A member of the RNA family "DUF805 RNA" from Flavobacterium muglaense, 69 nucleotides long. Taxonomically the source falls in Flavobacterium (Bacteria, Bacteroidota, Flavobacteriia, Flavobacteriaceae).
RNA sequence: AUGAUGUGUAGUCCAGAAAACACAAUAAAAAACGGGGAAUAACUCUAAAUCCUUAAGAGUAAGAAACAA
Numbered sequence: 001a002u003g004a005u006g007u008g009u010a011g012u013c014c015a016g017a018a019a020a021c022a023c024a025a026u027a028a029a030a031a032a033c034g035g036g037g038a039a040u041a042a043c044u045c046u047a048a049a050u051c052c053u054u055a056a057g058a059g060u061a062a063g064a065a066a067c068a069a
Stems, first nucleotide, its partner, number of pairs: 006023004036052003043063002

Rfam 15.1 lists 281 matches to the family in 219 species. By type it is a cis-regulatory element.